[Rfam]
RNA sequence: UGGAGGUGAAGGGCUUAGCUCGCUCCGUGAACAGUUCAAGUGAAAACUAUGUUCACAGUGGCUAAGUUCCGCUCCUCAC
Numbered sequence: 001u002g003g004a005g006g007u008g009a010a011g012g013g014c015u016u017a018g019c020u021c022g023c024u025c026c027g028u029g030a031a032c033a034g035u036u037c038a039a040g041u042g043a044a045a046a047c048u049a050u051g052u053u054c055a056c057a058g059u060g061g062c063u064a065a066g067u068u069c070c071g072c073u074c075c076u077c078a079c
Base pairs, nucleotide, nucleotide: 011069012068013067014066015065016064017063018062019061020060027056028055029054030053031052032051033050
This 79-nucleotide RNA sequence from Oryzias javanicus belongs to the Rfam family "mir-27 microRNA precursor family". The base pairs follow the family's consensus structure, which was predicted with RNAalifold. A search with the family's covariance model found it, with a score of 68 bits. On this family, see Chen et al., Genes Dev 2005: "The developmental miRNA profiles of zebrafish as determined by small RNA cloning".